RNA: mir-2774 microRNA precursor family
Organism: Bombyx mori
RNA sequence: ACAUCAUUAGGACCGUCGGUCUACCGAGCAAUAUCACCCGCUCGGUGGAAGCCUUUGUCAU
Numbered sequence: 001a002c003a004u005c006a007u008u009a010g011g012a013c014c015g016u017c018g019g020u021c022u023a024c025c026g027a028g029c030a031a032u033a034u035c036a037c038c039c040g041c042u043c044g045g046u047g048g049a050a051g052c053c054u055u056u057g058u059c060a061u
Stems, first nucleotide, its partner, number of pairs: 010058001012056001015053001017051001020049010